[Rfam]
RNA: small nucleolar RNA snoR117
RNA sequence: GGUCGGUAAUGCAUGAUCAAUUUGUCCGUACCAUAUGAGACUCUGUCUCUGAAGAAUGCUCAAAUUCUUAAUUCUGAGGCCU
Numbered sequence: 001g002g003u004c005g006g007u008a009a010u011g012c013a014u015g016a017u018c019a020a021u022u023u024g025u026c027c028g029u030a031c032c033a034u035a036u037g038a039g040a041c042u043c044u045g046u047c048u049c050u051g052a053a054g055a056a057u058g059c060u061c062a063a064a065u066u067c068u069u070a071a072u073u074c075u076g077a078g079g080c081c082u
Stems, first nucleotide, its partner, number of pairs: 001081004